The family of this 150-nucleotide RNA from Aotus nancymaae is "U12 minor spliceosomal RNA". On this family, see Tarn and Steitz, Trends Biochem Sci 1997: "Pre-mRNA splicing: the discovery of a new spliceosome doubles the challenge". It is annotated as a spliceosomal small nuclear RNA. Taxonomically the source falls in Aotus (Eukaryota, Metazoa, Amniota, Theria).
RNA sequence: ACACCUUAAACUUAAGAGUAAGGAAAAUAACGAUUCGGGGUGACGGCAGAAUCCUCACUGCUAAUGUGAGACGAAUUUUUGAGCGGGUAAAGGAUGCCCCUGAGGUGACCCGCCUACUUUGCAGGAUGCCUGGGAGCCAAGAUCUGCCCC
Number, nucleotide and partner (000 for none) at each position: 001a000002c000003a000004c023005c022006u021007u020008a019009a000010a000011c000012u000013u000014a000015a000016g000017a000018g000019u008020a007021a006022g005023g004024a000025a000026a000027a000028u000029a000030a000031c000032g053033a052034u051035u050036c049037g000038g047039g000040g000041u000042g000043a000044c000045g000046g000047c038048a000049g036050a035051a034052u033053c032054c070055u069056c068057a067058c066059u000060g000061c000062u000063a000064a000065u000066g058067u057068g056069a055070g054071a000072c000073g000074a000075a000076u000077u000078u000079u000080u000081g000082a000083g000084c000085g149086g148087g147088u146089a000090a000091a145092g144093g143094a000095u141096g000097c000098c000099c000100c134101u133102g000103a131104g130105g129106u128107g127108a000109c125110c124111c000112g122113c121114c000115u000116a000117c000118u000119u000120u000121g113122c112123a000124g110125g109126a000127u107128g106129c105130c104131u103132g000133g101134g100135a000136g000137c000138c000139a000140a000141g095142a000143u093144c092145u091146g088147c087148c086149c085150c000
Description: The match comes from Rfam's covariance-model search (113 bits). Pairs were carried over by alignment from the consensus structure.